[Rfam]
RNA sequence: GUCACGCGAGCAGCAACGGCUGGUGGUGAGUACCCUCACUCCCUGGCCUACCUUGAGAACGGGAUAGUUCUCCAGGCUGUUUGCGGGUUCCGUUAGGUGGCGAUGUAAAGGCCACUCGGGCUCGACACUGCGCUACCUCGCAGGUCACCGAUACACGGGUUUCGUGAUCGUGGUCGUGUGUAGCGGUCCGGACCGAUCCGGCCAGUG
Number, nucleotide and partner (000 for none) at each position: 001g000002u000003c000004a000005c000006g000007c000008g000009a000010g000011c000012a000013g000014c000015a000016a000017c000018g048019g047020c046021u045022g044023g000024u000025g040026g039027u038028g037029a036030g035031u000032a000033c000034c000035c030036u029037c028038a027039c026040u025041c000042c000043c000044u022045g021046g020047c019048c018049u000050a000051c076052c075053u074054u000055g072056a071057g070058a069059a068060c067061g000062g000063g000064a000065u000066a000067g060068u059069u058070c057071u056072c055073c000074a053075g052076g051077c000078u000079g000080u000081u000082u000083g000084c000085g123086g122087g121088u120089u000090c119091c118092g117093u000094u000095a000096g113097g112098u111099g000100g000101c000102g000103a000104u000105g000106u000107a000108a000109a000110g000111g098112c097113c096114a000115c000116u000117c092118g091119g090120g088121c087122u086123c085124g000125a000126c000127a000128c000129u000130g000131c000132g000133c000134u000135a000136c000137c000138u000139c000140g000141c178142a177143g175144g174145u173146c172147a171148c000149c170150g169151a168152u167153a000154c166155a165156c164157g163158g000159g000160u000161u000162u000163c157164g156165u155166g154167a152168u151169c150170g149171u147172g146173g145174u144175c143176g000177u142178g141179u000180g000181u000182a000183g000184c000185g000186g000187u000188c201189c200190g199191g198192a197193c000194c000195g000196a000197u192198c191199c190200g189201g188202c000203c000204a000205g000206u000207g000
RNA: ilvB-OMG RNA